Nucleotides: 114
Stems, first nucleotide, its partner, number of pairs: 001019004007034007035097004039092008049066007069081004100114005
Number, partner (000 for none) and nucleotide at each position: 001019c002018g003017g004016a005000g006000a007034u008033g009032u010031c011030u012029c013028u014000u015000a016004u017003c018002c019001g020000u021000u022000a023000u024000c025000a026000a027000c028013g029012g030011a031010g032009g033008c034007a035097c036096u037095c038094g039092g040091u041090c042089a043088u044087g045086c046085u047000g048000u049066g050065g051064g052063c053062u054061g055060c056000a057000a058000u059000a060055g061054c062053g063052g064051c065050c066049u067000u068000a069081g070080a071079c072078a073000c074000a075000a076000g077000u078072u079071g080070u081069c082000g083000a084000g085046g086045g087044u088043g089042u090041g091040a092039u093000g094038u095037g096036a097035g098000g099000a100114u101113g102112g103111g104110u105000u106000g107000g108000a109000u110104g111103c112102c113101c114100g